RNA sequence: CGGCUGUAAUGGUCAGUUUGGUUUAGAAGGCGCUCGAUUUUCUCGCCGUCUCUAUCUCAUUUCCAUAAGAACCCCUCAGCGGCGCCCAGCACGAAUCUCGCGGUGGCCACCCACUCGCAUGGGAAGCCUGCGAUCGCUGCGCGUGGCCCUAAGCAAUGAAGAUGACACUUGAGGCAGGUCUCACUGUGCAGAGGCAUCUUCACCGUCAGAUGGCGCGCUGGAUGACGAUCGCUGGGGGCUUGAGAUAGAGCGGCGAGAUGGAGAUGUCGACUCCAAUUUUUU
Numbered sequence: 001c002g003g004c005u006g007u008a009a010u011g012g013u014c015a016g017u018u019u020g021g022u023u024u025a026g027a028a029g030g031c032g033c034u035c036g037a038u039u040u041u042c043u044c045g046c047c048g049u050c051u052c053u054a055u056c057u058c059a060u061u062u063c064c065a066u067a068a069g070a071a072c073c074c075c076u077c078a079g080c081g082g083c084g085c086c087c088a089g090c091a092c093g094a095a096u097c098u099c100g101c102g103g104u105g106g107c108c109a110c111c112c113a114c115u116c117g118c119a120u121g122g123g124a125a126g127c128c129u130g131c132g133a134u135c136g137c138u139g140c141g142c143g144u145g146g147c148c149c150u151a152a153g154c155a156a157u158g159a160a161g162a163u164g165a166c167a168c169u170u171g172a173g174g175c176a177g178g179u180c181u182c183a184c185u186g187u188g189c190a191g192a193g194g195c196a197u198c199u200u201c202a203c204c205g206u207c208a209g210a211u212g213g214c215g216c217g218c219u220g221g222a223u224g225a226c227g228a229u230c231g232c233u234g235g236g237g238g239c240u241u242g243a244g245a246u247a248g249a250g251c252g253g254c255g256a257g258a259u260g261g262a263g264a265u266g267u268c269g270a271c272u273c274c275a276a277u278u279u280u281u282u
Stems, first nucleotide, its partner, number of pairs: 002014003020279002023276002026273001028272002031269002038261002044255004050250010073238003077234005083227002086221005092215002095211004100206004105148001107146004112141001114139001115133005121128002149153001157202007168193003175186003
This 282-nucleotide RNA from Madurella mycetomatis belongs to the Rfam family "Fungal signal recognition particle RNA". By type it is a non-coding RNA gene. The source organism's lineage runs through Eukaryota, Opisthokonta, Dikarya, leotiomyceta and Madurella. The family is grouped with related families in Rfam's "SRP clan". A reference for the family is Rosenblad et al. (2009), "Kinship in the SRP RNA family", RNA Biol.